RNA: Yersinia sRNA 155(RyfD)
RNA sequence: CAAGACGGUCCAGGAUACGUUUUCUCCAAAACUGCAGGUCAUUAACCUUGAAAAUUUGAGGGAUGACCUCAUUUAAUCUCCAGUAGCAAAUUGACCUGUAGGGGGAAUAAUGCGUCUGGAUCGUCUUAC
Numbered sequence: 001c002a003a004g005a006c007g008g009u010c011c012a013g014g015a016u017a018c019g020u021u022u023u024c025u026c027c028a029a030a031a032c033u034g035c036a037g038g039u040c041a042u043u044a045a046c047c048u049u050g051a052a053a054a055u056u057u058g059a060g061g062g063a064u065g066a067c068c069u070c071a072u073u074u075a076a077u078c079u080c081c082a083g084u085a086g087c088a089a090a091u092u093g094a095c096c097u098g099u100a101g102g103g104g105g106a107a108u109a110a111u112g113c114g115u116c117u118g119g120a121u122c123g124u125c126u127u128a129c
Base pairs, nucleotide, nucleotide: 002127003126004125005124006123007122008121009120010119011118012117014116015115016114018112019111021109023107024037025036027034046061047060048059049058050057051056062073063072064071065070077105078104079103080102081101083099084098085097